[Rfam]
RNA sequence: CAGCGGGUCACGUCCCCCCACCGGGACGCUUUUCUUCUGCAAGGGAGACCGAU
Number, nucleotide and partner (000 for none) at each position: 001c000002a000003g000004c000005g000006g000007g000008u000009c000010a000011c028012g027013u026014c025015c024016c023017c000018c000019c000020a000021c000022c000023g016024g015025g014026a013027c012028g011029c000030u000031u000032u000033u048034c047035u046036u045037c044038u043039g000040c000041a000042a000043g038044g037045g036046a035047g034048a033049c000050c000051g000052a000053u000

This 53-nucleotide sequence from Acidiphilium rubrum belongs to the Rfam family "serC leader". NCBI's taxonomy places the organism under Bacteria, Pseudomonadati, Pseudomonadota, Acetobacterales, Acidiphilium. It is annotated as a cis-regulatory leader. It scores 51 bits against the family's covariance model. From the family's description: This family is a putative regulatory RNA structure that is found upstream of the serC-serA operon in some alpha-proteobacteria. For this family Rfam cites "Evidence for a second class of S-adenosylmethionine riboswitches and other regulatory RNA motifs in alpha-proteobacteria" (Corbino et al., Genome Biol, 2005).